Record summary:
This 193-nucleotide RNA from Rhizobium sp. JAB6 belongs to the Rfam family "Rhizobiales sRNA Atu_C9". It scores 132 bits against the family's covariance model.
[Rfam]
RNA sequence: GGCUGACUGAGGAGAAAGACAUGGGAUUAACACGAUCCAUCAACGUCCUAGUGGUCGGUGCGGCCUUCGCUUUUGUCGUGACGAUGCUUUUCAUCUGACGGACUCGGCGAAAUUCGCAGGCGACCAGACUCCGAGAAGUUAACAAAACCCCUGUAUUAUUGGAAAAGCGCAUGCCCCGCCGGACAUGCGCUUU
Numbered sequence: 001g002g003c004u005g006a007c008u009g010a011g012g013a014g015a016a017a018g019a020c021a022u023g024g025g026a027u028u029a030a031c032a033c034g035a036u037c038c039a040u041c042a043a044c045g046u047c048c049u050a051g052u053g054g055u056c057g058g059u060g061c062g063g064c065c066u067u068c069g070c071u072u073u074u075g076u077c078g079u080g081a082c083g084a085u086g087c088u089u090u091u092c093a094u095c096u097g098a099c100g101g102a103c104u105c106g107g108c109g110a111a112a113u114u115c116g117c118a119g120g121c122g123a124c125c126a127g128a129c130u131c132c133g134a135g136a137a138g139u140u141a142a143c144a145a146a147a148c149c150c151c152u153g154u155a156u157u158a159u160u161g162g163a164a165a166a167g168c169g170c171a172u173g174c175c176c177c178g179c180c181g182g183a184c185a186u187g188c189g190c191u192u193u
Stems, first nucleotide, its partner, number of pairs: 014047002024038003164193010175182002
It is annotated as a small RNA. The literature on the family includes a 2012 paper in RNA Biol by Wilms et al., "Deep sequencing uncovers numerous small RNAs on all four replicons of the plant pathogen Agrobacterium tumefaciens".